[Rfam]
RNA sequence: CCCUUAUCUUUUAAAAGUUUCAAGUUGAUCCCUUAUCUUUAUUUUAGGUUUCAAGUUGGACCCUUCUGUCAAUUUUUAAAUAUUUCCGUUAAAUUUGGACACGUUGCAAACUAAUUUGGACACAUGACACACUUGGACAGAUGACACGUGUCCAAAUUUAACUGUAACAGUCAAAAAAUUGACGGAAGAGACCAACUUGAAACCUAAAAAAAAGAUAAGGGACCAACUUGAAACUUUUAAAAGAUAAGGGA
Numbered sequence: 001c002c003c004u005u006a007u008c009u010u011u012u013a014a015a016a017g018u019u020u021c022a023a024g025u026u027g028a029u030c031c032c033u034u035a036u037c038u039u040u041a042u043u044u045u046a047g048g049u050u051u052c053a054a055g056u057u058g059g060a061c062c063c064u065u066c067u068g069u070c071a072a073u074u075u076u077u078a079a080a081u082a083u084u085u086c087c088g089u090u091a092a093a094u095u096u097g098g099a100c101a102c103g104u105u106g107c108a109a110a111c112u113a114a115u116u117u118g119g120a121c122a123c124a125u126g127a128c129a130c131a132c133u134u135g136g137a138c139a140g141a142u143g144a145c146a147c148g149u150g151u152c153c154a155a156a157u158u159u160a161a162c163u164g165u166a167a168c169a170g171u172c173a174a175a176a177a178a179u180u181g182a183c184g185g186a187a188g189a190g191a192c193c194a195a196c197u198u199g200a201a202a203c204c205u206a207a208a209a210a211a212a213a214g215a216u217a218a219g220g221g222a223c224c225a226a227c228u229u230g231a232a233a234c235u236u237u238u239a240a241a242a243g244a245u246a247a248g249g250g251a
Base pairs, nucleotide, nucleotide: 002249003248004247005246006245007244008243023228024227025226027224029222031220032219033218034217035216036215037214038213039212040211042209043208045206046205047204
RNA: MIR2655 microRNA precursor family
Organism: Trifolium subterraneum